Histone 3' UTR stem-loop: a 46-nucleotide RNA sequence from Catharus ustulatus. The literature on the family includes a 1995 paper in Nucleic Acids Res by Williams and Marzluff, "The sequence of the stem and flanking sequences at the 3' end of histone mRNA are critical determinants for the binding of the stem-loop binding protein". The family's consensus secondary structure is taken from published work. The match comes from Rfam's covariance-model search (40 bits). The source organism's lineage runs through Eukaryota, Opisthokonta, Bilateria, Euteleostomi and Catharus.
[Rfam]
RNA sequence: ACAAAGGCUCUUUUCAGAGCCACCCACAAAUUUCAUAAAAAGAGUU
Numbered sequence: 001a002c003a004a005a006g007g008c009u010c011u012u013u014u015c016a017g018a019g020c021c022a023c024c025c026a027c028a029a030a031u032u033u034c035a036u037a038a039a040a041a042g043a044g045u046u
Stems, first nucleotide, its partner, number of pairs: 006021006